[Rfam]
RNA sequence: CUCUGGAGAGACCAAUGUUGGCGCCGAAGGGGCAAUACGGUGAGUUUGAUGCCGUCAAUCUCUCAGGCAAAAGGACAGAG
Numbered sequence: 001c002u003c004u005g006g007a008g009a010g011a012c013c014a015a016u017g018u019u020g021g022c023g024c025c026g027a028a029g030g031g032g033c034a035a036u037a038c039g040g041u042g043a044g045u046u047u048g049a050u051g052c053c054g055u056c057a058a059u060c061u062c063u064c065a066g067g068c069a070a071a072a073g074g075a076c077a078g079a080g
Stems, first nucleotide, its partner, number of pairs: 001080005012021003023068003026064002030062003037055006
This 80-nucleotide sequence from Ruminiclostridium hungatei belongs to the Rfam family "Glycine riboswitch aptamer". The source organism's lineage runs through Bacteria, Bacillota, Clostridia, Eubacteriales and Ruminiclostridium. A search with the family's covariance model found it, with a score of 53 bits.